Shown here is a 54-nucleotide RNA sequence from Oncorhynchus tshawytscha, a member of the family "UnaL2 LINE 3' element". It is annotated as a cis-regulatory element. The source organism's lineage runs through Eukaryota, Eumetazoa, Teleostomi, Teleostei and Oncorhynchus.
RNA sequence: UGCACUCCCUAGUGUAAGUUGCUCUGGAUAAGAGCAUCUGCUAAAUUAUGUAAA
Numbered sequence: 001u002g003c004a005c006u007c008c009c010u011a012g013u014g015u016a017a018g019u020u021g022c023u024c025u026g027g028a029u030a031a032g033a034g035c036a037u038c039u040g041c042u043a044a045a046u047u048a049u050g051u052a053a054a
Stems, first nucleotide, its partner, number of pairs: 013043001014041003020036006
Rfam describes the family as follows. The eel long interspersed element (LINE) UnaL2 and its partner short interspersed element (SINE) share a conserved 3' tail containing a stem-loop that is critical for their retrotransposition. The base pairs follow the family's consensus structure, which is taken from published work.